[Rfam]
RNA sequence: AUCACGCAAUCGUUGGCAGAAUCCUUAUUGCCGCCCAAUUUCGGCCCACAGCCGGCCGCUGUGCCCGGCGAUAGUUCACCUGUGCGUUGGCCCGAUCCGGUCGGUCCUGGAUUCCUCAGCCCCCAGCCCCCGGGUCCGGUUGGGUCGGGCCUGUACGCCGCGAAUUAUCCCCUCCUAUGGCUGGCGUUUUGCCGGCCAUUUU
Numbered sequence: 001a002u003c004a005c006g007c008a009a010u011c012g013u014u015g016g017c018a019g020a021a022u023c024c025u026u027a028u029u030g031c032c033g034c035c036c037a038a039u040u041u042c043g044g045c046c047c048a049c050a051g052c053c054g055g056c057c058g059c060u061g062u063g064c065c066c067g068g069c070g071a072u073a074g075u076u077c078a079c080c081u082g083u084g085c086g087u088u089g090g091c092c093c094g095a096u097c098c099g100g101u102c103g104g105u106c107c108u109g110g111a112u113u114c115c116u117c118a119g120c121c122c123c124c125a126g127c128c129c130c131c132g133g134g135u136c137c138g139g140u141u142g143g144g145u146c147g148g149g150c151c152u153g154u155a156c157g158c159c160g161c162g163a164a165u166u167a168u169c170c171c172c173u174c175c176u177a178u179g180g181c182u183g184g185c186g187u188u189u190u191g192c193c194g195g196c197c198a199u200u201u202u
Stems, first nucleotide, its partner, number of pairs: 037166001039051001081162003084158004089151011102138003106134005119127002178198008
Description: The family of this 202-nucleotide RNA from Rhodopseudomonas faecalis is "Bradyrhizobiaceae sRNA BjrC174". The match comes from Rfam's covariance-model search (130 bits). NCBI's taxonomy places the organism under Bacteria, Pseudomonadati, Pseudomonadota, Nitrobacteraceae, Rhodopseudomonas.